[Rfam]
RNA sequence: ACAAAGCACUUUUGUAAGUCGCUCUGGAUAAGAGCAUUUGCUAAAUGUGGUAAU
Numbered sequence: 001a002c003a004a005a006g007c008a009c010u011u012u013u014g015u016a017a018g019u020c021g022c023u024c025u026g027g028a029u030a031a032g033a034g035c036a037u038u039u040g041c042u043a044a045a046u047g048u049g050g051u052a053a054u
Stems, first nucleotide, its partner, number of pairs: 013043001014041003021035005